[Rfam]
Eukaryotic large subunit ribosomal RNA: a 491-nucleotide part of an RNA from Epichloe typhina. Taxonomically the source falls in Epichloe typhina (Eukaryota, Dikarya, sordariomyceta, Sordariomycetes). It is one of the family's seed sequences. Pairs were carried over by alignment from the consensus structure, which is taken from published work.

RNA sequence: UAGAAUAAUAUAGAUAAGGGAAGUUAGUAAAAUAAAUCUAUAACUUUAGGAAAAGAAUUAGCUCUAAGGGUUAGGUAUAUUAGGCCUUAGGAGGAUGCCCUAGGAGUAGGCAGCUACUAGCUAGGUAACUAGCUAGUAGUAGCUAGUAUUUAGGUACUAAUGCCCUUAGUAGGCCUUAGCUAUCUGGCGUAUAAUUAAUAACUAACUUAGAACUAGUAUAAAUAAGGGGAAUCUAACUGUCUAAUUAAAAUAUAGUAUUAUAAUAGCUAGAAAGUGGUGUUAAUAUAAUGUAAUUUCUGCCUAGUACUCUAAAUAUUAAAGUGAAGUAAUUUAACUAAGCAUAGGUAAAUAGUAGGAGUAACUAUAACUCUCUUAAGGUAGCUAAAUGCCUUAUUAUCUAAUUAGUAAUACAUAUAAAUAGAUUAAUAAGAUUCCUACUAUCCUUAUUUACUAUUUAGUAAAACUAUAGCUAAGGGAAUAGGCUUAGUAGA
Numbered sequence: 001u002a003g004a005a006u007a008a009u010a011u012a013g014a015u016a017a018g019g020g021a022a023g024u025u026a027g028u029a030a031a032a033u034a035a036a037u038c039u040a041u042a043a044c045u046u047u048a049g050g051a052a053a054a055g056a057a058u059u060a061g062c063u064c065u066a067a068g069g070g071u072u073a074g075g076u077a078u079a080u081u082a083g084g085c086c087u088u089a090g091g092a093g094g095a096u097g098c099c100c101u102a103g104g105a106g107u108a109g110g111c112a113g114c115u116a117c118u119a120g121c122u123a124g125g126u127a128a129c130u131a132g133c134u135a136g137u138a139g140u141a142g143c144u145a146g147u148a149u150u151u152a153g154g155u156a157c158u159a160a161u162g163c164c165c166u167u168a169g170u171a172g173g174c175c176u177u178a179g180c181u182a183u184c185u186g187g188c189g190u191a192u193a194a195u196u197a198a199u200a201a202c203u204a205a206c207u208u209a210g211a212a213c214u215a216g217u218a219u220a221a222a223u224a225a226g227g228g229g230a231a232u233c234u235a236a237c238u239g240u241c242u243a244a245u246u247a248a249a250a251u252a253u254a255g256u257a258u259u260a261u262a263a264u265a266g267c268u269a270g271a272a273a274g275u276g277g278u279g280u281u282a283a284u285a286u287a288a289u290g291u292a293a294u295u296u297c298u299g300c301c302u303a304g305u306a307c308u309c310u311a312a313a314u315a316u317u318a319a320a321g322u323g324a325a326g327u328a329a330u331u332u333a334a335c336u337a338a339g340c341a342u343a344g345g346u347a348a349a350u351a352g353u354a355g356g357a358g359u360a361a362c363u364a365u366a367a368c369u370c371u372c373u374u375a376a377g378g379u380a381g382c383u384a385a386a387u388g389c390c391u392u393a394u395u396a397u398c399u400a401a402u403u404a405g406u407a408a409u410a411c412a413u414a415u416a417a418a419u420a421g422a423u424u425a426a427u428a429a430g431a432u433u434c435c436u437a438c439u440a441u442c443c444u445u446a447u448u449u450a451c452u453a454u455u456u457a458g459u460a461a462a463a464c465u466a467u468a469g470c471u472a473a474g475g476g477a478a479u480a481g482g483c484u485u486a487g488u489a490g491a
Stems, first nucleotide, its partner, number of pairs: 001457004011450006018443003035059003039055001044049001060214002063211006069203005075192004080187004084163002088159003099154006106147002109144003113140012215219001227436007234428002238252003255291008266278004295422002299353002304350002306346003311342001314341001316339001322333004355371005373377001393409005470487005